A member of the RNA family "Glycine riboswitch aptamer" from Kangsaoukella pontilimi, 64 nucleotides long.
RNA sequence: CUCUGGAGAGUGCCCCUUCACAGGGCCGCCGAAGGGAUAGCGAUCUCAGGCGCAAGGGACAGAG
Numbered sequence: 001c002u003c004u005g006g007a008g009a010g011u012g013c014c015c016c017u018u019c020a021c022a023g024g025g026c027c028g029c030c031g032a033a034g035g036g037a038u039a040g041c042g043a044u045c046u047c048a049g050g051c052g053c054a055a056g057g058g059a060c061a062g063a064g
Base pairs, nucleotide, nucleotide: 001064002063003062004061005060012026013025014024015023028051029050030049031047032046035045036044
About the family: This family represents the bacterial glycine riboswitch. Lineage of the source: Bacteria > Alphaproteobacteria > Rhodobacterales > Paracoccaceae > Kangsaoukella. The family is grouped with related families in Rfam's "Glycine riboswitch clan".